[Rfam]
RNA sequence: AGGACAGGGGGGUCUCAGCCACCUGGCUGGGCCUGUCCGCAGGUUGCGCGUGAUGGCUCAGGUGCGACCAGUGGUUGUCGCUCGGGGGUGAUCGCCG
Numbered sequence: 001a002g003g004a005c006a007g008g009g010g011g012g013u014c015u016c017a018g019c020c021a022c023c024u025g026g027c028u029g030g031g032c033c034u035g036u037c038c039g040c041a042g043g044u045u046g047c048g049c050g051u052g053a054u055g056g057c058u059c060a061g062g063u064g065c066g067a068c069c070a071g072u073g074g075u076u077g078u079c080g081c082u083c084g085g086g087g088g089u090g091a092u093c094g095c096c097g
Base pairs, nucleotide, nucleotide: 002038003037004036005035006034007033008032014031015030016029017028018027019026020025042069043068044067045066046065047064048063049062
RNA: che1 RNA